[Rfam]
RNA sequence: GCCGUGAUAGUGUAAUGGUAACACAUUACGUUGUGGCCGUAAUAAUCCAGGUUCGAUUCCUGGUCACGGCA
Numbered sequence: 001g002c003c004g005u006g007a008u009a010g011u012g013u014a015a016u017g018g019u020a021a022c023a024c025a026u027u028a029c030g031u032u033g034u035g036g037c038c039g040u041a042a043u044a045a046u047c048c049a050g051g052u053u054c055g056a057u058u059c060c061u062g063g064u065c066a067c068g069g070c071a
Base pairs, nucleotide, nucleotide: 001070002069003068004067005066006065007064010024011023012022013021026042027041028040029039030038047063048062049061050060051059
Rfam assigns this 71-nucleotide sequence from Fopius arisanus to the family "tRNA". The family's consensus secondary structure is taken from published work. The family's RNA type in Rfam is transfer RNA. NCBI's taxonomy places the organism under Eukaryota, Allotriocarida, Eumetabola, Ichneumonoidea, Fopius. It scores 71 bits against the family's covariance model.